RNA sequence: UAGGGUUAUCUAGGCAAUCGCUGGUUAUGUAAAUAACGAGAGGAAAGUCCGGACUCCUAGCGAAAAGAUGCCUUGCGAGAACUUUUAAAUUCAAGCAAGGGGGAUCGUAUCCACGGACAGUGCCACAGAAAAUAACCGCCUUAUAUGUAAUAAUACAAGGUAAGGGUGAAAAAGUGCGGUAAGAGCGCACGGACAGUAUGAGUGAUCAUGCUGUGGGGUAAACCCCAUCUGGAGCAAGACAAAGCAUUAAACGGGCCCUUCGCUGCCAAUGGUUUAAGGGUAUGUCGCAUAGAUAAAUGGUUGCCACUUAACGUAUAGUUAAGCACAGAAUCCGGCUUAUUGAUGGUCCUACUCA
Numbered sequence: 001u002a003g004g005g006u007u008a009u010c011u012a013g014g015c016a017a018u019c020g021c022u023g024g025u026u027a028u029g030u031a032a033a034u035a036a037c038g039a040g041a042g043g044a045a046a047g048u049c050c051g052g053a054c055u056c057c058u059a060g061c062g063a064a065a066a067g068a069u070g071c072c073u074u075g076c077g078a079g080a081a082c083u084u085u086u087a088a089a090u091u092c093a094a095g096c097a098a099g100g101g102g103g104a105u106c107g108u109a110u111c112c113a114c115g116g117a118c119a120g121u122g123c124c125a126c127a128g129a130a131a132a133u134a135a136c137c138g139c140c141u142u143a144u145a146u147g148u149a150a151u152a153a154u155a156c157a158a159g160g161u162a163a164g165g166g167u168g169a170a171a172a173a174g175u176g177c178g179g180u181a182a183g184a185g186c187g188c189a190c191g192g193a194c195a196g197u198a199u200g201a202g203u204g205a206u207c208a209u210g211c212u213g214u215g216g217g218g219u220a221a222a223c224c225c226c227a228u229c230u231g232g233a234g235c236a237a238g239a240c241a242a243a244g245c246a247u248u249a250a251a252c253g254g255g256c257c258c259u260u261c262g263c264u265g266c267c268a269a270u271g272g273u274u275u276a277a278g279g280g281u282a283u284g285u286c287g288c289a290u291a292g293a294u295a296a297a298u299g300g301u302u303g304c305c306a307c308u309u310a311a312c313g314u315a316u317a318g319u320u321a322a323g324c325a326c327a328g329a330a331u332c333c334g335g336c337u338u339a340u341u342g343a344u345g346g347u348c349c350u351a352c353u354c355a
Stems, first nucleotide, its partner, number of pairs: 001351010012340001013305007021040002024037005045338003049335005054234004063264001066230005071100005101114001102112004115225002120223002122219003136165002138161005144155003174190005193214009238286004247277006257271001259269002
This 355-nucleotide sequence from Candidatus Chromulinivorax destructor belongs to the Rfam family "Bacterial RNase P class A". A search with the family's covariance model found it, with a score of 209 bits. Pairs were carried over by alignment from the consensus structure, which is taken from published work.